[Rfam]
RNA: Bacterial large subunit ribosomal RNA, nucleotides 1895 to 2482
Organism: Acetobacteraceae bacterium AT-5844
RNA sequence: CCCGUGGUCAGACGGAAAGACCCUAUGAACCUUUACUGCAACUUCGCAGUGGUGCCAGGAAGGGGCUGUGUAGGAUAGGUGGGAGGCUUUGAAGCCGGGGCGCUAGCUUCGGUGGAGCCAUCCUUGAAAUACCACCCUGCGCCUUUCUGGCAUCUAACUGAGCCUCGUCUAUCCGGGGCCAGGACCCUGCGUGGUGGGCAGUUUGACUGGGGCGGUCGCCUCCCAAAUGGUAACGGAGGCGCGCGAUGGUGGGCUCAAGCCGGUCGGACAUCGGCUGUUGAGUGCAAAGGCAUAAGCCCGCCUGACUGUGAGCGCGACAGCGCGAACAGAGACGAAAGUCGGCCUUAGUGAUCCGGUGGUCCCGCGUGGAAGGGCCAUCGCUCAACGGAUAAAAGGUACUCUAGGGAUAACAGGCUGAUCUCCCCCAAGAGUCCACAUCGACGGGGAGGUUUGGCACCUCGAUGUCGGCUCAUCGCAUCCCGGGGCUGGAGCAGGUCCCAAGGGUUCGGCUGUUCGCCGAUUAAAGCGGUACGUGAGCUGGGUUUAGAACGUCGUGAGACAGUUCGGUCCCUAUCUGCCAUGGGUGUA
Numbered sequence: 001c002c003c004g005u006g007g008u009c010a011g012a013c014g015g016a017a018a019g020a021c022c023c024u025a026u027g028a029a030c031c032u033u034u035a036c037u038g039c040a041a042c043u044u045c046g047c048a049g050u051g052g053u054g055c056c057a058g059g060a061a062g063g064g065g066c067u068g069u070g071u072a073g074g075a076u077a078g079g080u081g082g083g084a085g086g087c088u089u090u091g092a093a094g095c096c097g098g099g100g101c102g103c104u105a106g107c108u109u110c111g112g113u114g115g116a117g118c119c120a121u122c123c124u125u126g127a128a129a130u131a132c133c134a135c136c137c138u139g140c141g142c143c144u145u146u147c148u149g150g151c152a153u154c155u156a157a158c159u160g161a162g163c164c165u166c167g168u169c170u171a172u173c174c175g176g177g178g179c180c181a182g183g184a185c186c187c188u189g190c191g192u193g194g195u196g197g198g199c200a201g202u203u204u205g206a207c208u209g210g211g212g213c214g215g216u217c218g219c220c221u222c223c224c225a226a227a228u229g230g231u232a233a234c235g236g237a238g239g240c241g242c243g244c245g246a247u248g249g250u251g252g253g254c255u256c257a258a259g260c261c262g263g264u265c266g267g268a269c270a271u272c273g274g275c276u277g278u279u280g281a282g283u284g285c286a287a288a289g290g291c292a293u294a295a296g297c298c299c300g301c302c303u304g305a306c307u308g309u310g311a312g313c314g315c316g317a318c319a320g321c322g323c324g325a326a327c328a329g330a331g332a333c334g335a336a337a338g339u340c341g342g343c344c345u346u347a348g349u350g351a352u353c354c355g356g357u358g359g360u361c362c363c364g365c366g367u368g369g370a371a372g373g374g375c376c377a378u379c380g381c382u383c384a385a386c387g388g389a390u391a392a393a394a395g396g397u398a399c400u401c402u403a404g405g406g407a408u409a410a411c412a413g414g415c416u417g418a419u420c421u422c423c424c425c426c427a428a429g430a431g432u433c434c435a436c437a438u439c440g441a442c443g444g445g446g447a448g449g450u451u452u453g454g455c456a457c458c459u460c461g462a463u464g465u466c467g468g469c470u471c472a473u474c475g476c477a478u479c480c481c482g483g484g485g486c487u488g489g490a491g492c493a494g495g496u497c498c499c500a501a502g503g504g505u506u507c508g509g510c511u512g513u514u515c516g517c518c519g520a521u522u523a524a525a526g527c528g529g530u531a532c533g534u535g536a537g538c539u540g541g542g543u544u545u546a547g548a549a550c551g552u553c554g555u556g557a558g559a560c561a562g563u564u565c566g567g568u569c570c571c572u573a574u575c576u577g578c579c580a581u582g583g584g585u586g587u588a
Stems, first nucleotide, its partner, number of pairs: 001584008010576003014571002022405004027401002029397005035202004042194002045191004051154013065140002068137001078136005085119003094113008158182003162179006205217004218240006241386001243343002249301006255281002258276006282291002306329004312323003331340003354380007362373002414455003418452001419449007429439002466541001467539004471533001472530005479504002482499006506520005547565004551560003